[Rfam]
RNA: U1 spliceosomal RNA
Organism: Nezara viridula
RNA sequence: AUACUUGCCUGGCGUGGGGGUUACCAUGAUCACUAAGGCAGUUCCCCCAGGAUGAGGCUCUUCCAUUGCAUUUCGGUCGGGCUGACACCUGCGAAUACCCCAAAUGUGGGUAUCUCGGGUGUGUAAUUUUUGUUGUGGAAGUUAACUAAUUCAAGUGGUUUUUC
Numbered sequence: 001a002u003a004c005u006u007g008c009c010u011g012g013c014g015u016g017g018g019g020g021u022u023a024c025c026a027u028g029a030u031c032a033c034u035a036a037g038g039c040a041g042u043u044c045c046c047c048c049a050g051g052a053u054g055a056g057g058c059u060c061u062u063c064c065a066u067u068g069c070a071u072u073u074c075g076g077u078c079g080g081g082c083u084g085a086c087a088c089c090u091g092c093g094a095a096u097a098c099c100c101c102a103a104a105u106g107u108g109g110g111u112a113u114c115u116c117g118g119g120u121g122u123g124u125a126a127u128u129u130u131u132g133u134u135g136u137g138g139a140a141g142u143u144a145a146c147u148a149a150u151u152c153a154a155g156u157g158g159u160u161u162u163u164c
Stems, first nucleotide, its partner, number of pairs: 012122004016048005023042002027038001049090003054086001056083003060079001063076002092117003095113003099109002137163005143158001145156003